[Rfam]
Source information: The family of this 45-nucleotide sequence from Candidatus Thiodictyon syntrophicum is "Acido-Lenti-1 RNA". The family's consensus secondary structure is taken from published work. It scores 42 bits against the family's covariance model. Lineage of the source: Bacteria > Pseudomonadati > Pseudomonadota > Gammaproteobacteria > Thiodictyon. Rfam classes the family as a small RNA.
RNA sequence: CCCAGGGCGUUGCCCUGGGCUGGUAUAUCGCGCCCCUGCGGGGCU
Number, nucleotide and partner (000 for none) at each position: 001c019002c018003c017004a016005g015006g014007g013008c012009g000010u000011u000012g008013c007014c006015c005016u004017g003018g002019g001020c000021u000022g000023g000024u000025a000026u000027a000028u000029c000030g000031c000032g044033c043034c042035c041036c040037u000038g000039c000040g036041g035042g034043g033044c032045u000